[Rfam]
RNA sequence: CUCACGAUGUAGUAAUUUAAUCUUGAUAAUUUUGAUACUAUUCGAAUCCUCACAGUAAGAGGAUUUGAAUGAUAUCAAAAUUAUUAAGAU
Numbered sequence: 001c002u003c004a005c006g007a008u009g010u011a012g013u014a015a016u017u018u019a020a021u022c023u024u025g026a027u028a029a030u031u032u033u034g035a036u037a038c039u040a041u042u043c044g045a046a047u048c049c050u051c052a053c054a055g056u057a058a059g060a061g062g063a064u065u066u067g068a069a070u071g072a073u074a075u076c077a078a079a080a081u082u083a084u085u086a087a088g089a090u
Base pairs, nucleotide, nucleotide: 020090021089022088023087025085026084027083028082030080031079033077034076035075036074037073042069043067044066045065046064047063048062049061050060051059
Rfam assigns this 90-nucleotide RNA sequence from Dentiscutata erythropus to the family "Insect-specific Flavivirus 3' UTR cis-acting replication element (CRE)".
The literature on the family includes a 2017 paper in Front Microbiol by Fernandez-Sanles et al., "Functional Information Stored in the Conserved Structural RNA Domains of Flavivirus Genomes".
The family's RNA type in Rfam is cis-regulatory element.
From the family's description: Flavi_ISFV_CRE is a Insect specific Flavivirus family.
The family's consensus secondary structure was predicted with LocARNA.
Gene Ontology term of the family: viral RNA genome replication.
The source organism's lineage runs through Eukaryota, Glomeromycotina, Glomeromycetes, Gigasporaceae and Dentiscutata.
A search with the family's covariance model found it, with a score of 43 bits.